[Rfam]
RNA sequence: GUUAAACCUUUGAGCAAGAGUAGUAAGAUUAAUUGGCGCUUUAAGAGAGUCGGCGGGUGGUGCGAGCCGAUAGUUGAGAUUUUUCCGAAUGGACUUGUGAGGGCGGACCGAAAGAGUAUUCGAGUAGUUUCCGACGGAACCUGACCGUUACAGCAGGAGGCAUAUGUCAGUAUGCUGUAUGAGCGGGCGGAAUUUCCGUCAAUUUGGGUGGUACCACAGAAGUCGUUUCAGACCUUUGUCCCUUAG
Numbered sequence: 001g002u003u004a005a006a007c008c009u010u011u012g013a014g015c016a017a018g019a020g021u022a023g024u025a026a027g028a029u030u031a032a033u034u035g036g037c038g039c040u041u042u043a044a045g046a047g048a049g050u051c052g053g054c055g056g057g058u059g060g061u062g063c064g065a066g067c068c069g070a071u072a073g074u075u076g077a078g079a080u081u082u083u084u085c086c087g088a089a090u091g092g093a094c095u096u097g098u099g100a101g102g103g104c105g106g107a108c109c110g111a112a113a114g115a116g117u118a119u120u121c122g123a124g125u126a127g128u129u130u131c132c133g134a135c136g137g138a139a140c141c142u143g144a145c146c147g148u149u150a151c152a153g154c155a156g157g158a159g160g161c162a163u164a165u166g167u168c169a170g171u172a173u174g175c176u177g178u179a180u181g182a183g184c185g186g187g188c189g190g191a192a193u194u195u196c197c198g199u200c201a202a203u204u205u206g207g208g209u210g211g212u213a214c215c216a217c218a219g220a221a222g223u224c225g226u227u228u229c230a231g232a233c234c235u236u237u238g239u240c241c242c243u244u245a246g
Base pairs, nucleotide, nucleotide: 007102008101015097016096017095018094027085028084031081038074039073040072049071050070051069052068053067054066104133105132106131107130135147136146137145186200187199188198189197190196191195206242207241208240216239217238218237219236220235
RNA: T-box leader